[Rfam]
RNA sequence: AGCACUUUGUGUUGUAAGUCACUCUGGAUAAGAGCGUCUGCUAAAUGUAAUGUA
Numbered sequence: 001a002g003c004a005c006u007u008u009g010u011g012u013u014g015u016a017a018g019u020c021a022c023u024c025u026g027g028a029u030a031a032g033a034g035c036g037u038c039u040g041c042u043a044a045a046u047g048u049a050a051u052g053u054a
Base pairs, nucleotide, nucleotide: 013043014041015040016039020036022034023033024032025031
The family of this 54-nucleotide RNA sequence from Albula goreensis is "UnaL2 LINE 3' element". The source organism's lineage runs through Eukaryota, Opisthokonta, Actinopteri, Albulinae and Albula. It scores 56 bits against the family's covariance model. The eel long interspersed element (LINE) UnaL2 and its partner short interspersed element (SINE) share a conserved 3' tail containing a stem-loop that is critical for their retrotransposition.